Rfam assigns this 100-nucleotide sequence from Dimorphilus gyrociliatus to the family "mir-283 microRNA precursor family". The match comes from Rfam's covariance-model search (52 bits). Rfam 15.1 lists 98 matches to the family in 95 species. A reference for the family is Skalsky et al. (2010), "Identification of microRNAs expressed in two mosquito vectors, Aedes albopictus and Culex quinquefasciatus", BMC Genomics. Taxonomically the source falls in Dimorphilus (Eukaryota, Metazoa, Bilateria, Annelida).

RNA sequence: CUUCCUCAUCUGCGCCUAAUAUCAGCCGGUAAUUCUGAGACGUAAGUGGCAAGUAAGGCAAAACUCAGAAUUUCGACUGAUAUCUGGCUCUGGUGUAGUG
Numbered sequence: 001c002u003u004c005c006u007c008a009u010c011u012g013c014g015c016c017u018a019a020u021a022u023c024a025g026c027c028g029g030u031a032a033u034u035c036u037g038a039g040a041c042g043u044a045a046g047u048g049g050c051a052a053g054u055a056a057g058g059c060a061a062a063a064c065u066c067a068g069a070a071u072u073u074c075g076a077c078u079g080a081u082a083u084c085u086g087g088c089u090c091u092g093g094u095g096u097a098g099u100g
Stems, first nucleotide, its partner, number of pairs: 010092001012090001014088003019083007027075003032071008